This 78-nucleotide RNA from Heyndrickxia coagulans belongs to the Rfam family "RAGATH-18 RNA". Taxonomically the source falls in Heyndrickxia coagulans (Bacteria, Bacilli, Caryophanales, Heyndrickxia). By type it is a small RNA.
[Rfam]
RNA sequence: ACUUUGGAGUGUUACACCAAAUGCAAGUAGCGAUCUGUUUAAUAGAUAGACGUGAAAGCAGACACGAUGAAGAAGUAA
Number, nucleotide and partner (000 for none) at each position: 001a076002c075003u074004u073005u072006g000007g000008a000009g065010u064011g063012u062013u061014a000015c000016a000017c000018c000019a000020a000021a000022u060023g059024c058025a000026a000027g000028u000029a000030g053031c052032g051033a000034u046035c045036u044037g043038u000039u000040u000041a000042a000043u037044a036045g035046a034047u000048a000049g000050a000051c032052g031053u030054g000055a000056a000057a000058g024059c023060a022061g013062a012063c011064a010065c009066g000067a000068u000069g000070a000071a000072g005073a004074a003075g002076u001077a000078a000